Description: MIR9471 microRNA precursor family: a 135-nucleotide sequence from Solanum lycopersicum. The base pairs follow the family's consensus structure, which was predicted with RNAalifold. NCBI's taxonomy places the organism under Eukaryota, Magnoliopsida, Mesangiospermae, Gunneridae, Solanum subgen. Lycopersicon.
RNA sequence: UUCAGUUGAUUUCUCAGGUGCUCACUCAGCUAAUAGUUAUUAUUUAAGAAACUCAAUAAUAUUGGCAGCAAGGAGAAUGGUGACUUUCAGGAUGAUAACUAUUGGCUGAGUGAGCAUCACGGAAAUCGACGUGAU
Numbered sequence: 001u002u003c004a005g006u007u008g009a010u011u012u013c014u015c016a017g018g019u020g021c022u023c024a025c026u027c028a029g030c031u032a033a034u035a036g037u038u039a040u041u042a043u044u045u046a047a048g049a050a051a052c053u054c055a056a057u058a059a060u061a062u063u064g065g066c067a068g069c070a071a072g073g074a075g076a077a078u079g080g081u082g083a084c085u086u087u088c089a090g091g092a093u094g095a096u097a098a099c100u101a102u103u104g105g106c107u108g109a110g111u112g113a114g115c116a117u118c119a120c121g122g123a124a125a126u127c128g129a130c131g132u133g134a135u
Stems, first nucleotide, its partner, number of pairs: 002134003005130010017118029048088004053083003062071003